RNA sequence: AAACUAUCUACAGCGCUGGUGCUUGACGUUAAGUCAAGCAGACGAGGAAGAGGUUCAUCGAGCAGUCAGCGGAUACCUCUCGGCACCUGCAGCCGUGAGCUGGCCGACAAAACCACAGGGUGACCUGCGGGACAAAACGGCAGCGGCAGAAAAG
Dot-bracket structure: ...................((((((((.....))))))))........(((((....(.((....)).)......)))))((((.......))))...((((.((.......((.((((....)))).))........))))))..........